[Rfam]
RNA: PGK RNA
RNA sequence: UAGAAUACUUAUCUACUAAGGACAAAUGGUAUAUCGUUGAGAAAGUUAAACUCAAAAUGAUAAGUGAUUAUGCUUAAUACUGAUAAUAUUAAG
Numbered sequence: 001u002a003g004a005a006u007a008c009u010u011a012u013c014u015a016c017u018a019a020g021g022a023c024a025a026a027u028g029g030u031a032u033a034u035c036g037u038u039g040a041g042a043a044a045g046u047u048a049a050a051c052u053c054a055a056a057a058u059g060a061u062a063a064g065u066g067a068u069u070a071u072g073c074u075u076a077a078u079a080c081u082g083a084u085a086a087u088a089u090u091a092a093g
Base pairs, nucleotide, nucleotide: 008064009063010062011061012060013059037055038054039053040052041051073093074092075091076090077089078088079087